[Rfam]
RNA sequence: UAAAACUACUAGGGGCGCUCUAAUGUGGGCUGAGAGGAAUAGAUUUUUCCGACCCUUAUGGACCUGAUCUGGUUAGUACCAGCGGAGGGAAGUAGUACGACAAUUAG
Numbered sequence: 001u002a003a004a005a006c007u008a009c010u011a012g013g014g015g016c017g018c019u020c021u022a023a024u025g026u027g028g029g030c031u032g033a034g035a036g037g038a039a040u041a042g043a044u045u046u047u048u049c050c051g052a053c054c055c056u057u058a059u060g061g062a063c064c065u066g067a068u069c070u071g072g073u074u075a076g077u078a079c080c081a082g083c084g085g086a087g088g089g090a091a092g093u094a095g096u097a098c099g100a101c102a103a104u105u106a107g
Stems, first nucleotide, its partner, number of pairs: 006095005011056004017030004037049003041045001063088003069082004
TPP riboswitch aptamer (THI element): a 107-nucleotide RNA from Ornithinibacillus hominis. The source organism's lineage runs through Bacteria, Bacillati, Bacillota, Bacilli and Ornithinibacillus. Rfam describes the family as follows. Vitamin B(1) in its active form thiamin pyrophosphate (TPP) is an essential coenzyme that is synthesised by coupling of pyrimidine and thiazole moieties in bacteria.